[Rfam]
RNA sequence: UUACUGGCGGUCUCUAAUUCGCUUGGUGCAGGUCGGGAACUGAUUGCCUUGGAUUCGAUAUGAUUUAAGCCAGAUGGCGGCCCGUGGUUGGAGGAAGCACGAAUUGGAUCCCGCCUUGCAUCAACUGAAUCGGAGACCGCGGUGAAG
Numbered sequence: 001u002u003a004c005u006g007g008c009g010g011u012c013u014c015u016a017a018u019u020c021g022c023u024u025g026g027u028g029c030a031g032g033u034c035g036g037g038a039a040c041u042g043a044u045u046g047c048c049u050u051g052g053a054u055u056c057g058a059u060a061u062g063a064u065u066u067a068a069g070c071c072a073g074a075u076g077g078c079g080g081c082c083c084g085u086g087g088u089u090g091g092a093g094g095a096a097g098c099a100c101g102a103a104u105u106g107g108a109u110c111c112c113g114c115c116u117u118g119c120a121u122c123a124a125c126u127g128a129a130u131c132g133g134a135g136a137c138c139g140c141g142g143u144g145a146a147g
Stems, first nucleotide, its partner, number of pairs: 013134002017130004023124010034113005040107006
RNA: MIR168 microRNA precursor family